Notes: A member of the RNA family "Nematode snoRNA ceN88" from Ancylostoma ceylanicum, 147 nucleotides long. The family has 6 seed sequences and 99 matches in Rfam 15.1. It is annotated as an H/ACA-box small nucleolar RNA.
RNA sequence: UUCCUUCCUUCUUGGCGCUUCUACCUCAUCAGGGUAGCAGUGUAUGUAAUGGAAGGUAUAUAAUGUCCUUUUUUGGAUAUUCGGGUCUCCUUCGGUGCUAUUCCAGUGAUUUUUCGAAUAGUGUCAUCCUCUGGGCUCGAGACAGCU
Number, nucleotide and partner (000 for none) at each position: 001u000002u000003c056004c055005u054006u053007c052008c051009u000010u049011c000012u000013u000014g000015g043016c042017g041018c040019u000020u000021c037022u036023a035024c034025c000026u000027c000028a000029u000030c000031a000032g000033g000034g024035u023036a022037g021038c000039a000040g018041u017042g016043u015044a000045u000046g000047u000048a000049a010050u000051g008052g007053a006054a005055g004056g003057u000058a000059u000060a000061u000062a000063a000064u000065g000066u077067c076068c075069u000070u000071u000072u000073u000074u000075g068076g067077a066078u000079a000080u141081u140082c139083g138084g137085g136086u135087c134088u133089c000090c000091u000092u000093c000094g125095g124096u000097g000098c121099u120100a119101u118102u117103c116104c000105a000106g000107u000108g000109a000110u000111u000112u000113u000114u000115c000116g103117a102118a101119u100120a099121g098122u000123g000124u095125c094126a000127u000128c000129c000130u000131c000132u000133g088134g087135g086136c085137u084138c083139g082140a081141g080142a000143c000144a000145g000146c000147u000